The family of this 116-nucleotide RNA sequence from an Erysipelotrichia bacterium is "Ribosomal protein L10 leader". Rfam classes the family as a cis-regulatory leader. NCBI's taxonomy places the organism under Bacteria, Bacillati, Bacillota, Erysipelotrichia.
[Rfam]
RNA sequence: CUUAUAACGCUAUCAAAGCCUAAGACAGCAACGGCCAAAUCGGGCUUAAUUAUGUUGCCGAGGAAAAAGAUCAACUUUUUGCUCGUGUCACAAGAUACGAGUUUAUUAAUUUGUAG
Numbered sequence: 001c002u003u004a005u006a007a008c009g010c011u012a013u014c015a016a017a018g019c020c021u022a023a024g025a026c027a028g029c030a031a032c033g034g035c036c037a038a039a040u041c042g043g044g045c046u047u048a049a050u051u052a053u054g055u056u057g058c059c060g061a062g063g064a065a066a067a068a069g070a071u072c073a074a075c076u077u078u079u080u081g082c083u084c085g086u087g088u089c090a091c092a093a094g095a096u097a098c099g100a101g102u103u104u105a106u107u108a109a110u111u112u113g114u115a116g
Base pairs, nucleotide, nucleotide: 028058029057030056031055032054033053034045035044036043082101083100084099085098086097087096088095089094